[Rfam]
RNA: TPP riboswitch aptamer (THI element)
RNA sequence: UUCUUGUUACAGGGGAACUCAGACGAGUUGAGAAAGGUGACGGAUGCGCGGCAUCCGAACCUGACCCUUAGAACCUGUUGGUUAACACCAGCGUAGGGAGGAACACCAAUGAGUAC
Numbered sequence: 001u002u003c004u005u006g007u008u009a010c011a012g013g014g015g016a017a018c019u020c021a022g023a024c025g026a027g028u029u030g031a032g033a034a035a036g037g038u039g040a041c042g043g044a045u046g047c048g049c050g051g052c053a054u055c056c057g058a059a060c061c062u063g064a065c066c067c068u069u070a071g072a073a074c075c076u077g078u079u080g081g082u083u084a085a086c087a088c089c090a091g092c093g094u095a096g097g098g099a100g101g102a103a104c105a106c107c108a109a110u111g112a113g114u115a116c
Base pairs, nucleotide, nucleotide: 006104007103008102010100011068012067013066014065017028018027019026020025035062036061037060038059074097075096076095077094078091079090080089081088